[Rfam]
Nucleotides: 111
Base pairs, nucleotide, nucleotide: 034056035055036054037053038052039051040050041049042048092104093103094102095101
Number, partner (000 for none) and nucleotide at each position: 001000u002000a003000u004000a005000g006000a007000g008000c009000c010000u011000c012000g013000g014000u015000a016000a017000u018000c019000a020000g021000g022000g023000u024000c025000c026000a027000g028000u029000a030000a031000u032000a033000a034056a035055a036054a037053a038052c039051c040050c041049c042048g043000u044000a045000a046000u047000u048042c049041g050040g051039g052038g053037u054036u055035u056034u057000u058000u059000a060000u061000u062000a063000u064000c065000u066000g067000a068000a069000a070000c071000a072000u073000g074000a075000c076000c077000a078000u079000u080000c081000a082000g083000g084000u085000a086000u087000c088000u089000a090000c091000u092104g093103g094102g095101c096000u097000u098000u099000a100000u101095g102094c103093c104092c105000u106000u107000u108000u109000u110000u111000u

A member of the RNA family "Gammaprotebacteria rimP leader" from Photobacterium sp. SKA34, 111 nucleotides long. The literature on the family includes a 2010 paper in Genome Biol by Naville and Gautheret, "Premature terminator analysis sheds light on a hidden world of bacterial transcriptional attenuation". The organism belongs to Photobacterium, within Bacteria. Gene Ontology term of the family: regulation of gene expression. The sequence is in the family's curated seed alignment.